[Rfam]
RNA sequence: AAGGUCAGUGAUGAAGAUCAAAUCCUUCAUAUACUCAGUGGUUUGGGGCCUGAAUAUGACGUCGUCAUGGUUACCAUUACCUCUAGAGCAGAUGCCUGCAGUCUGCAGGAUAUGAUUGCUUUACUUCUAAGUUUUGAAU
Numbered sequence: 001a002a003g004g005u006c007a008g009u010g011a012u013g014a015a016g017a018u019c020a021a022a023u024c025c026u027u028c029a030u031a032u033a034c035u036c037a038g039u040g041g042u043u044u045g046g047g048g049c050c051u052g053a054a055u056a057u058g059a060c061g062u063c064g065u066c067a068u069g070g071u072u073a074c075c076a077u078u079a080c081c082u083c084u085a086g087a088g089c090a091g092a093u094g095c096c097u098g099c100a101g102u103c104u105g106c107a108g109g110a111u112a113u114g115a116u117u118g119c120u121u122u123a124c125u126u127c128u129a130a131g132u133u134u135u136g137a138a139u
Base pairs, nucleotide, nucleotide: 005137006136007135008134088106089105090104091103092102093101
Source information
This 139-nucleotide sequence from Salvia splendens belongs to the Rfam family "Small nucleolar RNA Z247". The family's RNA type in Rfam is C/D-box small nucleolar RNA. Lineage of the source: Eukaryota > Euphyllophyta > Pentapetalae > lamiids > core Calosphace. The base pairs follow the family's consensus structure, which was predicted with PFOLD.